[Rfam]
RNA sequence: GUCGCGGCCGCCUCUGACUCGCUUGGUGCAGGUCGGGAACGCUUCGAUCUGAAUUUUUUUUUUUUUUUUUUGAAGUUACUGCGAUCAAAAGCGAAUCCCGCCUUGCACCAACUGAAUCGGAGGCGGCGAAGCGA
Numbered sequence: 001g002u003c004g005c006g007g008c009c010g011c012c013u014c015u016g017a018c019u020c021g022c023u024u025g026g027u028g029c030a031g032g033u034c035g036g037g038a039a040c041g042c043u044u045c046g047a048u049c050u051g052a053a054u055u056u057u058u059u060u061u062u063u064u065u066u067u068u069u070u071u072g073a074a075g076u077u078a079c080u081g082c083g084a085u086c087a088a089a090a091g092c093g094a095a096u097c098c099c100g101c102c103u104u105g106c107a108c109c110a111a112c113u114g115a116a117u118c119g120g121a122g123g124c125g126g127c128g129a130a131g132c133g134a
Stems, first nucleotide, its partner, number of pairs: 013121002017117001019115002023111010034100005040093005